[Rfam]
RNA: Small nucleolar RNA snoR53Y
RNA sequence: GUUCCCAAUGAUUGUUUACUACCAUUUUUACCAUGCUAAUGCUGAUAAUUGAUGAUUAAUGUGUUCAGUUAAUCAUAAUGAGGGAUCU
Numbered sequence: 001g002u003u004c005c006c007a008a009u010g011a012u013u014g015u016u017u018a019c020u021a022c023c024a025u026u027u028u029u030a031c032c033a034u035g036c037u038a039a040u041g042c043u044g045a046u047a048a049u050u051g052a053u054g055a056u057u058a059a060u061g062u063g064u065u066c067a068g069u070u071a072a073u074c075a076u077a078a079u080g081a082g083g084g085a086u087c088u
Stems, first nucleotide, its partner, number of pairs: 001087001003085003